Annotation:
The record is a 134-nucleotide RNA sequence from Catagonus wagneri, which matches "Small nucleolar RNA SNORA31" in Rfam.

[Rfam]
RNA sequence: CGUAUCUCAAUUUGAUAGCCCUGGAGCUGUUACUAUCUGCUAUUAAGGUUUCCACUACAGGUGCCAGAAAAAGUGUUCUUAUACUUUCCGUCUGUCUGAUUGUGGCAGCACAGAGUGAAUGAGGGAAUACAGGG
Dot-bracket structure: .((((((.....((..((.((...(((.(.......).))).....)).)).))....))))))...........(((((...(..((.(.(((((.......)))))..).))..)....)))))........
On this family, see Huttenhofer et al., EMBO J 2001: "RNomics: an experimental approach that identifies 201 candidates for novel, small, non-messenger RNAs in mouse". Rfam's curators write: ACA31 (SNORA31) belongs to the H/ACA class of snoRNAs which are thought to guide the sites of modification of uridines to pseudouridines. ACA31 is predicted to guide the pseudouridylation of U3713 in 28S rRNA and U218 in 18S rRNA. This family includes the mouse homologue snoMBI-161. It is annotated as an H/ACA-box small nucleolar RNA.